[Rfam]
RNA sequence: UAUGGAAUGAGUUGAAGCUCGAAACAUCCUGCAAAUAUACAUACACAAUGAAAUAAUCGGGAAAAAAAAAAAGUACCCCAGAUUCUUCUUUUUUUUUUCUGGUUGUUUUUUUUUUUUUUUUUUUGUGUAAUUUUUUUAUAUACAGGAAGGAAGGUCUGAGAUGCUCCAUAAAAAGAAAUAUAUAUAUACAUAUAUAUGAAUGUAUAUUUUUCUUUAAAAACAUUUUUGAGAAAAAAAAUAUUGAAAAAAUAUUAAUUAGCUACCAGAAAUAUCAAUCUUAUAGCUCCCAUGAGGGUUAUAUGAUUUUGAAAAAGCUAAUAAGCAAGUAUACAUUGGUGAGUUCGAUUUUUGAGAUUUUUCACAAGCUUCGAAAUGUGUGCAUUUACAUAUGUAUACAUUUUUUUUGAAGUGCUGGAAAAAUAACUUAAUUCAGACUACUCAUAGACUCAUUCCAUCAU
Numbered sequence: 001u002a003u004g005g006a007a008u009g010a011g012u013u014g015a016a017g018c019u020c021g022a023a024a025c026a027u028c029c030u031g032c033a034a035a036u037a038u039a040c041a042u043a044c045a046c047a048a049u050g051a052a053a054u055a056a057u058c059g060g061g062a063a064a065a066a067a068a069a070a071a072a073g074u075a076c077c078c079c080a081g082a083u084u085c086u087u088c089u090u091u092u093u094u095u096u097u098u099c100u101g102g103u104u105g106u107u108u109u110u111u112u113u114u115u116u117u118u119u120u121u122u123u124u125g126u127g128u129a130a131u132u133u134u135u136u137u138a139u140a141u142a143c144a145g146g147a148a149g150g151a152a153g154g155u156c157u158g159a160g161a162u163g164c165u166c167c168a169u170a171a172a173a174a175g176a177a178a179u180a181u182a183u184a185u186a187u188a189c190a191u192a193u194a195u196a197u198g199a200a201u202g203u204a205u206a207u208u209u210u211u212c213u214u215u216a217a218a219a220a221c222a223u224u225u226u227u228g229a230g231a232a233a234a235a236a237a238a239u240a241u242u243g244a245a246a247a248a249a250u251a252u253u254a255a256u257u258a259g260c261u262a263c264c265a266g267a268a269a270u271a272u273c274a275a276u277c278u279u280a281u282a283g284c285u286c287c288c289a290u291g292a293g294g295g296u297u298a299u300a301u302g303a304u305u306u307u308g309a310a311a312a313a314g315c316u317a318a319u320a321a322g323c324a325a326g327u328a329u330a331c332a333u334u335g336g337u338g339a340g341u342u343c344g345a346u347u348u349u350u351g352a353g354a355u356u357u358u359u360c361a362c363a364a365g366c367u368u369c370g371a372a373a374u375g376u377g378u379g380c381a382u383u384u385a386c387a388u389a390u391g392u393a394u395a396c397a398u399u400u401u402u403u404u405u406g407a408a409g410u411g412c413u414g415g416a417a418a419a420a421u422a423a424c425u426u427a428a429u430u431c432a433g434a435c436u437a438c439u440c441a442u443a444g445a446c447u448c449a450u451u452c453c454a455u456c457a458u
Stems, first nucleotide, its partner, number of pairs: 004453010015442001018353007027147005042129007152436002156433005161329005167322001190209001192207006223236005252321003256318006277302001279300005286295003354421007
Dot-bracket structure: ...((((((((((.(..(((((((..(((((..........(((((((..........................................................................))))))).............)))))....[[..[[[[[(((((.(......................(.((((((....)))))).).............(((((....)))))...............(((.((((((...............(.(((((..(((....)))))))).)..........))))))))))..))))).................)))))))(((((((......................................................))))))).......]]]]].]].....).)))))))))).....
Shown here is a 458-nucleotide RNA sequence from Plasmodium malariae, a member of the family "Plasmodium RNase_P".
NCBI's taxonomy places the organism under Eukaryota, Sar, Haemosporida, Plasmodium, Plasmodium.
The literature on the family includes a 2007 paper in RNA by Chakrabarti et al., "Structural RNAs of known and unknown function identified in malaria parasites by comparative genomics and RNA analysis".
It is annotated as a ribozyme.